A member of the RNA family "Small nucleolar RNA R16" from Solanum lycopersicum, 76 nucleotides long. The base pairs follow the family's consensus structure, which was predicted with PFOLD. Rfam's curators put it in the seed alignment. On this family, see Galardi et al., Mol Cell Biol 2002: "Purified box C/D snoRNPs are able to reproduce site-specific 2'-O-methylation of target RNA in vitro".

RNA sequence: UUUGGCAAAUGACGAUUCACUGUAAAUACUGAAUAAUCAUGUCGAUUAUCAACUCCGCUUAUUAUCUGAUGCCUUU
Dot-bracket structure: ...((((..............................................................))))...